[Rfam]
RNA sequence: AUCCUCUCUUGCCUAUUGGCUAAGAUCAAGUGUAGUAUCUGUUCUUUUCAGUCUAAUAUCUGAAACGUUGCACACUGUGCAACUUCGAUAUUAAACGAAUUUUUGCAUUUGGGGGAGAGUCCCUGGCUUGCCAAACUCUUUCCAAGAGUGUCCCUAGUAUUGUACUACAUCUAGGUGAUGCUCACAUUUA
Numbered sequence: 001a002u003c004c005u006c007u008c009u010u011g012c013c014u015a016u017u018g019g020c021u022a023a024g025a026u027c028a029a030g031u032g033u034a035g036u037a038u039c040u041g042u043u044c045u046u047u048u049c050a051g052u053c054u055a056a057u058a059u060c061u062g063a064a065a066c067g068u069u070g071c072a073c074a075c076u077g078u079g080c081a082a083c084u085u086c087g088a089u090a091u092u093a094a095a096c097g098a099a100u101u102u103u104u105g106c107a108u109u110u111g112g113g114g115g116a117g118a119g120u121c122c123c124u125g126g127c128u129u130g131c132c133a134a135a136c137u138c139u140u141u142c143c144a145a146g147a148g149u150g151u152c153c154c155u156a157g158u159a160u161u162g163u164a165c166u167a168c169a170u171c172u173a174g175g176u177g178a179u180g181c182u183c184a185c186a187u188u189u190a
Base pairs, nucleotide, nucleotide: 007025008024009023011020012019013018046065047064048063049062050061051060067083068082069081070080071079072078073077112143113142114141115140116139117138118137119136124133125132126131146183147182148181149180150179151178153175154174155173156172157171

This 190-nucleotide RNA sequence from Funneliformis geosporum belongs to the Rfam family "U2 spliceosomal RNA". The source organism's lineage runs through Eukaryota, Opisthokonta, Glomeromycetes, Glomerales and Funneliformis. The family is grouped with related families in Rfam's "U2 clan". Rfam describes the family as follows. U2 is a small nuclear RNA (snRNA) component of the spliceosome (involved in pre-mRNA splicing). Complementary binding between U2 snRNA (in an area lying towards the 5' end but 3' to hairpin I) and the branchpoint sequence (BPS) of the intron results the bulging out of an unpaired adenosine, on the BPS, which initiates a nucleophilic attack at the intronic 5' splice site, thus starting the first of two transesterification reactions that mediate splicing.